[Rfam]
RNA sequence: GCGGAGGGCCGGAUGGCCGCGGGCGGGCGACCGCUCGAGGAAAGUCCGGACUCCCUGAAGCCACGGUGCCGGGUAACGCCCGGGCGGAGCGAUCCGACGGACAGCGCCACAGAAAUGAAACUACCCUUGUCCGCAGGGGAAAAGGUGAAACGGUGGGGUAAGAGCCCACCGCGCGACGGGCAACCGGAGCGGCACGGCAAGCCCCACCGGGAGCAAUGCCGAAUAGGGAUGCCGCGGGGGCGACCCCGGGGGCCGGCUUCGCCCCCAGGCAUCCGGGUUGGCAGCUUGAGGCGCGGGGGCAACCCCGCGUCCAGAGGAAUGGCCAUCCAGAGGGGGGCGACCCCCUUGGACAGAAUCCGGCUUACAGGCCCUCCGCGCAA
Number, nucleotide and partner (000 for none) at each position: 001g376002c375003g374004g373005a372006g371007g370008g369009c368010c367011g365012g327013a326014u325015g324016g323017c322018c321019g000020c037021g036022g035023g034024c033025g032026g031027g000028c000029g000030a000031c026032c025033g024034c023035u022036c021037g020038a000039g000040g000041a000042a363043a362044g361045u000046c360047c359048g358049g357050a356051c213052u212053c211054c210055c000056u000057g000058a000059a259060g258061c000062c256063a000064c209065g208066g207067u206068g205069c083070c082071g081072g080073g079074u000075a000076a000077c000078g000079c073080c072081c071082g070083g069084g098085c096086g095087g094088a093089g000090c000091g000092a000093u088094c087095c086096g085097a000098c084099g204100g203101a000102c000103a000104g202105c201106g198107c197108c196109a000110c000111a000112g000113a000114a000115a000116u000117g000118a000119a000120a000121c144122u143123a000124c139125c138126c137127u136128u135129g134130u000131c000132c000133g000134c129135a128136g127137g126138g125139g124140a000141a000142a000143a122144g121145g000146u000147g000148a000149a000150a000151c000152g170153g169154u168155g167156g166157g165158g000159u000160a000161a000162g000163a000164g000165c157166c156167c155168a154169c153170c152171g193172c191173g190174c189175g000176a000177c186178g185179g184180g000181c000182a000183a000184c179185c178186g177187g000188a000189g174190c173191g172192g000193c171194a000195c000196g108197g107198c106199a000200a000201g105202c104203c100204c099205c068206a067207c066208c065209g064210g054211g053212a052213g051214c000215a000216a000217u283218g282219c281220c280221g000222a000223a000224u000225a000226g000227g274228g273229a272230u271231g270232c269233c000234g000235c000236g000237g000238g000239g000240g000241c000242g000243a000244c000245c000246c000247c000248g000249g000250g264251g263252g262253c261254c000255g000256g062257c000258u060259u059260c000261g253262c252263c251264c250265c000266c000267a000268g000269g232270c231271a230272u229273c228274c227275g000276g000277g000278u000279u000280g220281g219282c218283a217284g000285c000286u000287u000288g000289a000290g000291g310292c309293g308294c307295g306296g305297g304298g303299g000300c000301a000302a000303c298304c297305c296306c295307g294308c293309g292310u291311c000312c000313a000314g000315a000316g000317g000318a000319a000320u000321g018322g017323c016324c015325a014326u013327c012328c000329a000330g000331a000332g000333g000334g000335g000336g000337g000338c000339g000340a000341c000342c000343c000344c000345c000346u000347u000348g000349g000350a000351c000352a000353g000354a000355a000356u050357c049358c048359g047360g046361c044362u043363u042364a000365c011366a000367g010368g009369c008370c007371c006372u005373c004374c003375g002376c001377g000378c000379a000380a000
A member of the RNA family "Bacterial RNase P class A" from Roseicyclus persicicus, 380 nucleotides long. The family's consensus secondary structure is taken from published work. About the family: Ribonuclease P (RNase P) is a ubiquitous endoribonuclease, found in archaea, bacteria and eukarya as well as chloroplasts and mitochondria.